[Rfam]
RNA sequence: CCCACACUCAUGUGUGUAGGACCCCAAAGAAUUACCAUUAAAUUUGGCACAGGUCUGAAGAAAAGUUAUCACAUGGGUGUGGGACUUGAUUUUUUUUUAGAUUUGUGCCAAAUUUAAUAGUGAUCCUUAGAGGUCCUGCACACAUGGGUGUGGG
Numbered sequence: 001c002c003c004a005c006a007c008u009c010a011u012g013u014g015u016g017u018a019g020g021a022c023c024c025c026a027a028a029g030a031a032u033u034a035c036c037a038u039u040a041a042a043u044u045u046g047g048c049a050c051a052g053g054u055c056u057g058a059a060g061a062a063a064a065g066u067u068a069u070c071a072c073a074u075g076g077g078u079g080u081g082g083g084a085c086u087u088g089a090u091u092u093u094u095u096u097u098u099a100g101a102u103u104u105g106u107g108c109c110a111a112a113u114u115u116a117a118u119a120g121u122g123a124u125c126c127u128u129a130g131a132g133g134u135c136c137u138g139c140a141c142a143c144a145u146g147g148g149u150g151u152g153g154g
Stems, first nucleotide, its partner, number of pairs: 002153012015140009025130001027128002031124002034121002037118032069082005

The record is a 154-nucleotide RNA from Amborella trichopoda, which matches "MIR8565 microRNA precursor family" in Rfam. Taxonomically the source falls in Amborella (Eukaryota, Viridiplantae, Embryophyta, Spermatophyta). The match comes from Rfam's covariance-model search (138 bits). Pairs were carried over by alignment from the consensus structure, which was predicted with RNAalifold.